The family of this 46-nucleotide RNA sequence from Antarctobacter albus is "Guanidine-II riboswitch aptamer (mini-ykkC)".
RNA sequence: GGCAGAGGACGACCUCCAGCGAUGGAACAGUCCCGGGACGGCCCGG
Numbered sequence: 001g002g003c004a005g006a007g008g009a010c011g012a013c014c015u016c017c018a019g020c021g022a023u024g025g026a027a028c029a030g031u032c033c034c035g036g037g038a039c040g041g042c043c044c045g046g
Stems, first nucleotide, its partner, number of pairs: 002017001005016004033046005
A search with the family's covariance model found it, with a score of 32 bits.